[Rfam]
RNA sequence: UCCGGAGAGUGACGGCCCCGUUCGGCUGUCCGCCGAAGGAGCAAGUGGCGCGGAGGGAUGAUCCCCGGGCCAUGAAACUCUCAGGCUCAUGACGGA
Number, nucleotide and partner (000 for none) at each position: 001u096002c095003c094004g093005g000006a000007g000008a000009g000010u000011g030012a029013c028014g027015g026016c025017c024018c000019c000020g000021u000022u000023c000024g017025g016026c015027u014028g013029u012030c011031c000032g086033c085034c084035g082036a081037a000038g000039g080040a079041g078042c000043a000044a000045g073046u072047g071048g070049c069050g000051c000052g000053g000054a000055g000056g000057g000058a000059u000060g000061a000062u000063c000064c000065c000066c000067g000068g000069g049070c048071c047072a046073u045074g000075a000076a000077a000078c041079u040080c039081u036082c035083a000084g034085g033086c032087u000088c000089a000090u000091g000092a000093c004094g003095g002096a001

Shown here is a 96-nucleotide RNA from Aureimonas sp. Leaf454, a member of the family "Glycine riboswitch aptamer". Gene Ontology term of the family: glycine biosynthetic process. NCBI's taxonomy places the organism under Bacteria, Pseudomonadota, Alphaproteobacteria, Aurantimonadaceae, Aureimonas.